[Rfam]
RNA: mir-927 microRNA precursor family
Organism: Musca domestica
RNA sequence: UUGGACAUACUUUGAUUUAGAAUUCCUACGCUUUACCUUGUUAUAUGAAAAUGGCAAAGCGUUUGGAUUCUGAAACAAAUUGUUU
Numbered sequence: 001u002u003g004g005a006c007a008u009a010c011u012u013u014g015a016u017u018u019a020g021a022a023u024u025c026c027u028a029c030g031c032u033u034u035a036c037c038u039u040g041u042u043a044u045a046u047g048a049a050a051a052u053g054g055c056a057a058a059g060c061g062u063u064u065g066g067a068u069u070c071u072g073a074a075a076c077a078a079a080u081u082g083u084u085u
Base pairs, nucleotide, nucleotide: 011078012077014076016074017073018072019071020070021069023067024066025065028062029061030060031059032058033057034056036054037053